[Rfam]
The record is a 77-nucleotide RNA sequence from Propylenella binzhouense, which matches "Makes More Granules Regulator RNA (mmgR)" in Rfam. A search with the family's covariance model found it, with a score of 60 bits. On this family, see Lagares et al., Mol Phylogenet Evol 2016: "Phylogenetic distribution and evolutionary pattern of an alpha-proteobacterial small RNA gene that controls polyhydroxybutyrate accumulation in Sinorhizobium meliloti". The organism belongs to Propylenella, within Bacteria.
Nucleotides: 077
Base pairs, nucleotide, nucleotide: 008019009018010017011016038062039061040060041059042058043057044056045054046053
Number, partner (000 for none) and nucleotide at each position: 001000c002000g003000c004000u005000c006000g007000c008019g009018c010017c011016c012000a013000c014000a015000c016011g017010g018009g019008c020000g021000u022000u023000u024000c025000c026000u027000c028000c029000c030000u031000a032000g033000a034000c035000u036000u037000c038062g039061g040060a041059c042058c043057g044056c045054c046053g047000g048000u049000c050000a051000g052000c053046c054045g055000u056044g057043c058042g059041g060040u061039c062038c063000u064000u065000u066000u067000u068000u069000u070000u071000u072000g073000c074000g075000c076000c077000g